[Rfam]
RNA: Small nucleolar RNA snoR2/U65
Nucleotides: 141
Base pairs, nucleotide, nucleotide: 002059003058004057005056006055007054008053009051013047014046015045016044017043020040021039022038024033025032026031073133074132075131076130077129086122087121091118092117093116095114096113097112098111099110
Number, partner (000 for none) and nucleotide at each position: 001000g002059g003058u004057u005056c006055g007054a008053u009051g010000c011000c012000a013047c014046g015045u016044c017043g018000u019000u020040g021039g022038u023000a024033g025032c026031u027000c028000a029000a030000g031026a032025g033024c034000u035000g036000u037000g038022a039021c040020c041000u042000u043017c044016g045015a046014u047013g048000c049000u050000a051009u052000g053008a054007u055006u056005g057004a058003a059002c060000c061000a062000a063000a064000a065000a066000c067000g068000a069000a070000u071000u072000u073133u074132c075131a076130c077129a078000u079000c080000u081000u082000g083000a084000u085000a086122g087121g088000a089000a090000u091118c092117u093116g094000u095114g096113g097112a098111u099110c100000u101000c102000u103000u104000u105000u106000c107000g108000u109000a110099g111098g112097u113096u114095u115000a116093c117092a118091g119000a120000g121087c122086c123000g124000u125000u126000u127000u128000g129077u130076g131075u132074g133073a134000u135000u136000a137000c138000a139000u140000c141000u